[Rfam]
Nucleotides: 382
Base pairs, nucleotide, nucleotide: 001378002377003376004375005374006373007372008371009370011367012337013336014335015334016333017332018331020041021040023038024037025036026035046365047364048363050362051361052360053359054358055220056219057218058217062270063269064268067216068215069214070213071212072086073085074084075083076082087106088104089103090102091101092100093099094098107211108210112209113208114205115204116203129152130151131148132147133146134145135144136143137142160178161177162176163175164174165173181200183198184197185196186195187194188193224294225293226292227291234285235284236283237282238281239280261275262274264272265271301320302319303318304317305316306315307314308313
Number, partner (000 for none) and nucleotide at each position: 001378a002377a003376g004375c005374a006373a007372a008371c009370u010000g011367g012337u013336u014335c015334u016333a017332u018331c019000g020041c021040u022000g023038u024037c025036c026035u027000u028000g029000u030000a031000u032000u033000a034000u035026a036025g037024g038023a039000a040021a041020g042000a043000g044000g045000a046365a047364a048363g049000u050362c051361c052360g053359g054358g055220c056219a057218a058217c059000a060000u061000a062270g063269a064268g065000c066000a067216a068215c069214a070213c071212g072086c073085u074084u075083c076082c077000u078000a079000a080000c081000g082076g083075g084074a085073a086072g087106g088104c089103u090102c091101u092100u093099a094098a095000a096000c097000u098094u099093u100092g101091a102090g103089a104088g105000a106087c107211a108210g109000a110000a111000a112209g113208u114205g115204c116203c117000a118000c119000a120000g121000a122000a123000a124000a125000u126000a127000u128000a129152c130151c131148g132147c133146u134145a135144c136143a137142g138000u139000u140000u141000u142137c143136u144135g145134u146133a147132g148131u149000a150000a151130g152129g153000g154000u155000g156000a157000a158000a159000a160178c161177g162176u163175g164174a165173g166000g167000u168000a169000a170000g171000a172000g173165c174164u175163c176162a177161c178160g179000g180000u181200a182000u183198u184197g185196u186195a187194u188193g189000g190000c191000g192000a193188c194187a195186u196185g197184c198183a199000u200181u201000a202000c203116g204115g205114u206000a207000a208113a209112c210108c211107u212071c213070g214069u215068g216067u217058g218057u219056u220055g221000a222000a223000a224294a225293a226292c227291c228000a229000a230000a231000u232000a233000g234285g235284u236283u237282g238281c239280g240000a241000a242000g243000g244000u245000g246000a247000g248000g249000g250000c251000u252000g253000c254000u255000c256000g257000u258000c259000u260000u261275c262274u263000a264272u265271c266000g267000u268064c269063u270062c271265g272264a273000c274262g275261g276000u277000a278000u279000u280239c281238g282237c283236a284235a285234u286000g287000g288000g289000u290000a291227g292226g293225u294224u295000g296000a297000u298000g299000g300000a301320g302319c303318u304317u305316a306315c307314a308313u309000g310000u311000g312000a313308a314307u315306g316305u317304a318303a319302g320301u321000c322000u323000a324000g325000a326000u327000a328000a329000a330000u331018g332017a333016u334015a335014g336013a337012a338000a339000u340000c341000c342000u343000g344000c345000a346000a347000a348000g349000g350000a351000u352000a353000c354000a355000g356000a357000a358054c359053c360052c361051g362050g363048c364047u365046u366000a367011c368000a369000a370009g371008g372007u373006u374005u375004g376003c377002u378001u379000c380000u381000u382000u
The record is a 382-nucleotide sequence from Sphingobacterium deserti, which matches "Bacterial RNase P class A" in Rfam.
It is annotated as a ribozyme.
Taxonomically the source falls in Sphingobacterium (Bacteria, Bacteroidota, Sphingobacteriia, Sphingobacteriales).
It scores 258 bits against the family's covariance model.